This 108-nucleotide sequence from Anaeromicropila herbilytica belongs to the Rfam family "TPP riboswitch aptamer (THI element)".
The base pairs follow the family's consensus structure, which is taken from published work.
The organism belongs to Anaeromicropila, within Bacteria.
A search with the family's covariance model found it, with a score of 60 bits.
[Rfam]
RNA sequence: AAAAACAACAAGGGGGGCUCGCAGUAAGCGGGCUGAGAGUAAGCUGUAUGCUUUGACCCAUAACCUGAUUUGGAUAAUGCCAACGUAGGGAUAUUUUGCACACAAUGC
Numbered sequence: 001a002a003a004a005a006c007a008a009c010a011a012g013g014g015g016g017g018c019u020c021g022c023a024g025u026a027a028g029c030g031g032g033c034u035g036a037g038a039g040u041a042a043g044c045u046g047u048a049u050g051c052u053u054u055g056a057c058c059c060a061u062a063a064c065c066u067g068a069u070u071u072g073g074a075u076a077a078u079g080c081c082a083a084c085g086u087a088g089g090g091a092u093a094u095u096u097u098g099c100a101c102a103c104a105a106u107g108c
Base pairs, nucleotide, nucleotide: 007095008094010092012059013058014057016054017033018032019031020030021029041053042052043051044050064089065088066087067086070083071082072081073080